Shown here is a 61-nucleotide RNA sequence from Asparagus officinalis, a member of the family "Plastid-psbN 5UTR RNA". A search with the family's covariance model found it, with a score of 66 bits. For this family Rfam cites "The primary transcriptome of barley chloroplasts: numerous noncoding RNAs and the dominating role of the plastid-encoded RNA polymerase" (Zhelyazkova et al., Plant Cell, 2012). By type it is a cis-regulatory element. The organism belongs to Asparagus, within Eukaryota. Rfam describes the family as follows. Plastid psbN is a non-coding RNA (ncRNA) recognised in plastids. It was reported as a conserved 11 stem-loop in the prime untranslated region (5UTR) of psbN genes. It has been reported that the motif is retained in a subset of mature transcripts in barley, which can suggests a possible role in transcript alternative 5 prime processing.
RNA sequence: AUUGAAUCCCAUAAGUGGUGUAGUUCCCCAGCCCGGAGCUACUUUACCAUAUUCCGAAAUU
Numbered sequence: 001a002u003u004g005a006a007u008c009c010c011a012u013a014a015g016u017g018g019u020g021u022a023g024u025u026c027c028c029c030a031g032c033c034c035g036g037a038g039c040u041a042c043u044u045u046a047c048c049a050u051a052u053u054c055c056g057a058a059a060u061u
Stems, first nucleotide, its partner, number of pairs: 017045002020042008